[Rfam]
RNA sequence: UAAAUACUACUAAAUAAAAAAAGGAGCAAUAGCUUCCCUCUUGUUUUAUCAAGAGGGAAGCUAUUGCUCCUUUUU
Numbered sequence: 001u002a003a004a005u006a007c008u009a010c011u012a013a014a015u016a017a018a019a020a021a022a023g024g025a026g027c028a029a030u031a032g033c034u035u036c037c038c039u040c041u042u043g044u045u046u047u048a049u050c051a052a053g054a055g056g057g058a059a060g061c062u063a064u065u066g067c068u069c070c071u072u073u074u075u
Stems, first nucleotide, its partner, number of pairs: 020073013034059003038055005
A member of the RNA family "Plastid-psbA-1 3UTR RNA" from Atractylodes lancea, 75 nucleotides long. Plastid psbA-1 is a non-coding RNA (ncRNA) present in plastids. It was identified in inverted repeat sequences in the 3 prime untranslate region (3UTR) of photosystem II quinone-binding protein (psbA). A reference for the family is Richter et al. (2023), "Retrograde signaling in plants: A critical review focusing on the GUN pathway and beyond", Plant Commun. The source organism's lineage runs through Eukaryota, Pentapetalae, Asterales, Asteraceae and Atractylodes. It is one of the family's seed sequences.